[Rfam]
RNA sequence: CUGUCUCUAUAUGAAGCGUUUCGUAUAACAGCGGUAAUAGGGUCCGCUGGUUUCUACAGGCUGCCGUAAAUAGCUUGACUACGAAUUCUGGACCGAAAGAA
Numbered sequence: 001c002u003g004u005c006u007c008u009a010u011a012u013g014a015a016g017c018g019u020u021u022c023g024u025a026u027a028a029c030a031g032c033g034g035u036a037a038u039a040g041g042g043u044c045c046g047c048u049g050g051u052u053u054c055u056a057c058a059g060g061c062u063g064c065c066g067u068a069a070a071u072a073g074c075u076u077g078a079c080u081a082c083g084a085a086u087u088c089u090g091g092a093c094c095g096a097a098a099g100a101a
Stems, first nucleotide, its partner, number of pairs: 018087001020085006029049006057077007

Source information:
Rfam assigns this 101-nucleotide RNA from Salibacterium qingdaonense to the family "Purine riboswitch aptamer". The match comes from Rfam's covariance-model search (68 bits). The family's consensus secondary structure is taken from published work.